RNA sequence: ACAACGGCUCUUUUAAGAGCCACCCACUUCAUCUAAAGAGGUCUU
Numbered sequence: 001a002c003a004a005c006g007g008c009u010c011u012u013u014u015a016a017g018a019g020c021c022a023c024c025c026a027c028u029u030c031a032u033c034u035a036a037a038g039a040g041g042u043c044u045u
Stems, first nucleotide, its partner, number of pairs: 006021006
RNA: Histone 3' UTR stem-loop